A member of the RNA family "sRNA-Xcc1", 85 nucleotides long. Pairs were carried over by alignment from the consensus structure, which was predicted with RNAalifold.
RNA sequence: GUCGGGCGGGAGGAGAAUACAAUACCCGAAAGGGGAAUAAUCCCAGCCGUCUGUUUGCGGCUUUCGAACCGCCCGACACCCUAUU
Number, nucleotide and partner (000 for none) at each position: 001g077002u076003c075004g074005g073006g072007c071008g070009g069010g000011a000012g000013g044014a000015g042016a041017a000018u000019a000020c000021a000022a000023u000024a000025c034026c033027c032028g000029a000030a000031a000032g027033g026034g025035g000036a000037a000038u000039a000040a000041u016042c015043c000044c013045a062046g061047c060048c059049g058050u057051c000052u000053g000054u000055u000056u000057g050058c049059g048060g047061c046062u045063u000064u000065c000066g000067a000068a000069c009070c008071g007072c006073c005074c004075g003076a002077c001078a000079c000080c000081c000082u000083a000084u000085u000